Notes
This 67-nucleotide sequence belongs to the Rfam family "skipping-rope RNA".
RNA sequence: UAGUAUAGAGGAUGGAACGGGCAGCCAUCGCCUUUGUGGAGAUGAGGAUUGUCACCCUCCUAUACUU
Numbered sequence: 001u002a003g004u005a006u007a008g009a010g011g012a013u014g015g016a017a018c019g020g021g022c023a024g025c026c027a028u029c030g031c032c033u034u035u036g037u038g039g040a041g042a043u044g045a046g047g048a049u050u051g052u053c054a055c056c057c058u059c060c061u062a063u064a065c066u067u
Stems, first nucleotide, its partner, number of pairs: 002066007011029005020053004031039001044059004